[Rfam]
Background: The record is an 89-nucleotide sequence from Trifolium medium, which matches "Small nucleolar RNA snoR53Y" in Rfam. Rfam classes the family as a C/D-box small nucleolar RNA. The family is grouped with related families in Rfam's "snoR53 clan". Rfam links the family to the GO terms RNA processing and nucleolus. A reference for the family is Brown et al. (2001), "Multiple snoRNA gene clusters from Arabidopsis", RNA. The organism belongs to Trifolium, within Eukaryota. It scores 46 bits against the family's covariance model.

RNA sequence: GUUCCAAAUGAUUGUAUGCUAAUUUUUUUUACCACGCUAAUGCUGAUAAUUGUUGAUUGAUAAGUUCAGUUUAUCAUGCUUAGGGAACU
Numbered sequence: 001g002u003u004c005c006a007a008a009u010g011a012u013u014g015u016a017u018g019c020u021a022a023u024u025u026u027u028u029u030u031a032c033c034a035c036g037c038u039a040a041u042g043c044u045g046a047u048a049a050u051u052g053u054u055g056a057u058u059g060a061u062a063a064g065u066u067c068a069g070u071u072u073a074u075c076a077u078g079c080u081u082a083g084g085g086a087a088c089u
Stems, first nucleotide, its partner, number of pairs: 001088005